[Rfam]
RNA sequence: CCUGCGGAGGACGAUUGUCCGAAAUGGGUUGUUGUGCAGCGUGACCAUGCUGCGCGAGGAUGCCUUGACAUCCUCACUUGAGCCGCGCCUUGCGCCGCUCCCUGAGUGCCACGCCCCCGGAAGGGGCGUGGCAUCCAGGUCU
Numbered sequence: 001c002c003u004g005c006g007g008a009g010g011a012c013g014a015u016u017g018u019c020c021g022a023a024a025u026g027g028g029u030u031g032u033u034g035u036g037c038a039g040c041g042u043g044a045c046c047a048u049g050c051u052g053c054g055c056g057a058g059g060a061u062g063c064c065u066u067g068a069c070a071u072c073c074u075c076a077c078u079u080g081a082g083c084c085g086c087g088c089c090u091u092g093c094g095c096c097g098c099u100c101c102c103u104g105a106g107u108g109c110c111a112c113g114c115c116c117c118c119g120g121a122a123g124g125g126g127c128g129u130g131g132c133a134u135c136c137a138g139g140u141c142u
Stems, first nucleotide, its partner, number of pairs: 009020004031078001033076001034055009056075007080100004085095004101139004106134012
A member of the RNA family "sbcD RNA" from Cupriavidus sp. USMAA2-4, 142 nucleotides long. Lineage of the source: Bacteria > Pseudomonadati > Burkholderiales > Burkholderiaceae > Cupriavidus. The match comes from Rfam's covariance-model search (116 bits). It is annotated as a small RNA.